[Rfam]
RNA: Small nucleolar RNA SNORA23
Organism: Salarias fasciatus
Nucleotides: 179
Base pairs, nucleotide, nucleotide: 013091014090015089030080031079035077036075037074038073039072040071041070043068044067045065046064047063050060051059052058107172108171109170110169111168120158121157122156123155124154125153128150129149131143132141133140134139
Number, partner (000 for none) and nucleotide at each position: 001000g002000g003000u004000g005000a006000a007000u008000g009000g010000u011000g012000u013091g014090c015089g016000c017000g018000g019000u020000g021000g022000u023000a024000g025000u026000c027000c028000g029000u030080g031079u032000u033000a034000c035077g036075u037074g038073c039072u040071g041070c042000u043068g044067c045065c046064g047063g048000a049000c050060u051059g052058u053000g054000u055000c056000u057000u058052a059051c060050a061000g062000c063047c064046u065045g066000u067044g068043c069000a070041g071040c072039a073038g074037u075036g076000c077035u078000c079031a080030c081000u082000c083000c084000a085000c086000a087000c088000c089015u090014g091013c092000a093000g094000c095000c096000a097000u098000a099000g100000a101000a102000c103000a104000g105000c106000u107172g108171g109170a110169g111168a112000u113000c114000a115000u116000a117000g118000u119000a120158c121157u122156g123155g124154c125153c126000c127000u128150u129149g130000a131143c132141g133140u134139c135000u136000a137000c138000u139134g140133a141132c142000a143131g144000c145000u146000c147000a148000c149129c150128a151000u152000c153125g154124g155123u156122c157121g158120g159000c160000c161000u162000c163000c164000a165000a166000a167000c168111u169110c170109u171108c172107c173000a174000a175000c176000a177000u178000g179000c